pemK RNA: a 58-nucleotide sequence from Solobacterium moorei. The base pairs follow the family's consensus structure, which is taken from published work. It scores 40 bits against the family's covariance model.
RNA sequence: AUAAUGAUACUUCUAGCGAUAGGCCCACGCGUAAGAUGGGUUGGUGCGACUCCAAUGA
Numbered sequence: 001a002u003a004a005u006g007a008u009a010c011u012u013c014u015a016g017c018g019a020u021a022g023g024c025c026c027a028c029g030c031g032u033a034a035g036a037u038g039g040g041u042u043g044g045u046g047c048g049a050c051u052c053c054a055a056u057g058a
Base pairs, nucleotide, nucleotide: 012055013022014021015020023041024040025039027037042054043053044052